[Rfam]
Rfam assigns this 69-nucleotide RNA from Carnegiea gigantea to the family "Plastid-clpP 5UTR RNA". Lineage of the source: Eukaryota > Viridiplantae > eudicotyledons > Cactaceae > Carnegiea. Plastid clpP is a non-coding RNA (ncRNA) recognised in plastids. It was found in the prime untranslated region (5UTR) of a protease complex subunit (clpP) in plastids, suggesting a posible cis-regulatory function. By type it is a cis-regulatory element. A search with the family's covariance model found it, with a score of 69 bits.
RNA sequence: UUUUUUUUUGGUAGGAACAAAGAGAAGCAAAUCCAUUCUAUACUUGACAAGUAGCAAUACGCAAUAGGG
Numbered sequence: 001u002u003u004u005u006u007u008u009u010g011g012u013a014g015g016a017a018c019a020a021a022g023a024g025a026a027g028c029a030a031a032u033c034c035a036u037u038c039u040a041u042a043c044u045u046g047a048c049a050a051g052u053a054g055c056a057a058u059a060c061g062c063a064a065u066a067g068g069g
Stems, first nucleotide, its partner, number of pairs: 003022002006019001008017002043068003051060003